[Rfam]
RNA sequence: CUUGCAAUGAUGAUAGAACAGACAGGGACAUCAGCACCCUCUGCGGGAUGAUGAUUUGUCAAUGGGAAUCUCUCUGAUGCUGG
Dot-bracket structure: .(.(((.......................................................................))).).
RNA: Small nucleolar RNA R44/J54/Z268 family
Organism: Capsicum baccatum